[Rfam]
RNA sequence: AUUGCAAGUUUGAGGACACAACAGAAGUGCUCAUGUCAUGGCCCUGUCAGAUUUCAAUGAAUCUGUGAAUUCUGCU
Numbered sequence: 001a002u003u004g005c006a007a008g009u010u011u012g013a014g015g016a017c018a019c020a021a022c023a024g025a026a027g028u029g030c031u032c033a034u035g036u037c038a039u040g041g042c043c044c045u046g047u048c049a050g051a052u053u054u055c056a057a058u059g060a061a062u063c064u065g066u067g068a069a070u071u072c073u074g075c076u
Base pairs, nucleotide, nucleotide: 014043015042017040020076022074023073024072025071026070027039028038029037048065049064050063051062052061053060054059
RNA: Mammalian CPEB3 ribozyme